[Rfam]
RNA sequence: UCUUGCCAUGAGCUGGAGUGAGCGGGUCUGAAACGACCCAGGAAAGUCCCCGGGCCCUACUCCGCAGAAAUGCGGUCCUGGAAACAGGAACGCUCGGUGCAACGAAUCUAUCUGUCCUGUGCAGGUGGCUGAGACAAGUGUGGAGCCUAGAGGUUCGUUGCCCGGGUAACUUGGCCGAAUGCCUACAGUUAUUCACUCAGGUCCACAACACUGUGUUCCAACAGAACGGGGCUUACAUCUCAUGGCGUC
Numbered sequence: 001u002c003u004u005g006c007c008a009u010g011a012g013c014u015g016g017a018g019u020g021a022g023c024g025g026g027u028c029u030g031a032a033a034c035g036a037c038c039c040a041g042g043a044a045a046g047u048c049c050c051c052g053g054g055c056c057c058u059a060c061u062c063c064g065c066a067g068a069a070a071u072g073c074g075g076u077c078c079u080g081g082a083a084a085c086a087g088g089a090a091c092g093c094u095c096g097g098u099g100c101a102a103c104g105a106a107u108c109u110a111u112c113u114g115u116c117c118u119g120u121g122c123a124g125g126u127g128g129c130u131g132a133g134a135c136a137a138g139u140g141u142g143g144a145g146c147c148u149a150g151a152g153g154u155u156c157g158u159u160g161c162c163c164g165g166g167u168a169a170c171u172u173g174g175c176c177g178a179a180u181g182c183c184u185a186c187a188g189u190u191a192u193u194c195a196c197u198c199a200g201g202u203c204c205a206c207a208a209c210a211c212u213g214u215g216u217u218c219c220a221a222c223a224g225a226a227c228g229g230g231g232c233u234u235a236c237a238u239c240u241c242a243u244g245g246c247g248u249c
Base pairs, nucleotide, nucleotide: 004247005246006245007244008243009242010241011240016198017197018196019195020194021193024039025038026037027036028035044234045233046232048231049230050229051228063074064073065072066071076089077088078087079086080085092170094168099161100160101159102158103157104156116153117152118151127147128146129145136141201218204215205214206213
RNA: RNase MRP